[Rfam]
RNA sequence: CCCGCCACUAUGCUGGUCUGUGAGUGACUUGGUAUAAUCCAGUGGAGGCUAAAAUCAUUAUCAGCUCUAGGAAGCAGGGCUGCCCAAUCUAAUGGGCAUCUCUGUGCCGAAAGGUCUGAAACAAAU
Numbered sequence: 001c002c003c004g005c006c007a008c009u010a011u012g013c014u015g016g017u018c019u020g021u022g023a024g025u026g027a028c029u030u031g032g033u034a035u036a037a038u039c040c041a042g043u044g045g046a047g048g049c050u051a052a053a054a055u056c057a058u059u060a061u062c063a064g065c066u067c068u069a070g071g072a073a074g075c076a077g078g079g080c081u082g083c084c085c086a087a088u089c090u091a092a093u094g095g096g097c098a099u100c101u102c103u104g105u106g107c108c109g110a111a112a113g114g115u116c117u118g119a120a121a122c123a124a125a126u
Stems, first nucleotide, its partner, number of pairs: 005045005018032003061119004065114002068111001070108002075104005083096003
The family of this 126-nucleotide sequence from Astyanax mexicanus is "Small nucleolar RNA SNORA65". Rfam describes the family as follows. U65 belongs to the H/ACA class of snoRNAs which are thought to guide the sites of modification of uridines to pseudouridines. Rfam classes the family as an H/ACA-box small nucleolar RNA. On this family, see Huttenhofer et al., EMBO J 2001: "RNomics: an experimental approach that identifies 201 candidates for novel, small, non-messenger RNAs in mouse". NCBI's taxonomy places the organism under Eukaryota, Otophysi, Acestrorhamphidae, Acestrorhamphinae, Astyanax. Rfam 15.1 lists 1,089 matches to the family in 619 species. The family's consensus secondary structure was predicted with RNAalifold. Its Rfam clan is "SNORA65 clan".